[Rfam]
RNA sequence: ACAAAUGGAAAAUAACAAUAGAAAUUGUACAAAAUUAAACACACAAUAAGGUCUGGGAAGGUCUGAGCUGCCGAAUUGUCUCUAGGUGGGAAAUAUGCUACAAGUGUAUGCUUUGGUACCAGAAAUAGUCUUGGUAGUUGGUCACAAAGAUCCAGUCGACGAAUCACGUCUCACGACGUUGGUGAAGAGGCUGAGGAGUACAUCAACUAUCACGGUUGGGAAUACUAAUGGGGCAGUAGAAUCAAUGAAGUUUGAUAUACUGGACAAAUUCAAAAAAGAAUUUGCAACUUAAUUCAGAUUAAUCUCCUGUGGA
Numbered sequence: 001a002c003a004a005a006u007g008g009a010a011a012a013u014a015a016c017a018a019u020a021g022a023a024a025u026u027g028u029a030c031a032a033a034a035u036u037a038a039a040c041a042c043a044c045a046a047u048a049a050g051g052u053c054u055g056g057g058a059a060g061g062u063c064u065g066a067g068c069u070g071c072c073g074a075a076u077u078g079u080c081u082c083u084a085g086g087u088g089g090g091a092a093a094u095a096u097g098c099u100a101c102a103a104g105u106g107u108a109u110g111c112u113u114u115g116g117u118a119c120c121a122g123a124a125a126u127a128g129u130c131u132u133g134g135u136a137g138u139u140g141g142u143c144a145c146a147a148a149g150a151u152c153c154a155g156u157c158g159a160c161g162a163a164u165c166a167c168g169u170c171u172c173a174c175g176a177c178g179u180u181g182g183u184g185a186a187g188a189g190g191c192u193g194a195g196g197a198g199u200a201c202a203u204c205a206a207c208u209a210u211c212a213c214g215g216u217u218g219g220g221a222a223u224a225c226u227a228a229u230g231g232g233g234c235a236g237u238a239g240a241a242u243c244a245a246u247g248a249a250g251u252u253u254g255a256u257a258u259a260c261u262g263g264a265c266a267a268a269u270u271c272a273a274a275a276a277a278g279a280a281u282u283u284g285c286a287a288c289u290u291a292a293u294u295c296a297g298a299u300u301a302a303u304c305u306c307c308u309g310u311g312g313a
Stems, first nucleotide, its partner, number of pairs: 002311002007307003013262002017258001020054003063297005069235004079091004093109006111230001113228005131215003265284006
This 313-nucleotide RNA sequence from Polysphondylium violaceum belongs to the Rfam family "Nuclear RNase P". Rfam describes the family as follows. Ribonuclease P (RNase P) is a ubiquitous endoribonuclease, found in archaea, bacteria and eukarya as well as chloroplasts and mitochondria. Its best characterised activity is the generation of mature 5'-ends of tRNAs by cleaving the 5'-leader elements of precursor-tRNAs. Cellular RNase Ps are ribonucleoproteins. RNA from bacterial RNase Ps retains its catalytic activity in the absence of the protein subunit, i.e. it is a ribozyme. The family's consensus secondary structure is taken from published work. Clan: RNaseP clan.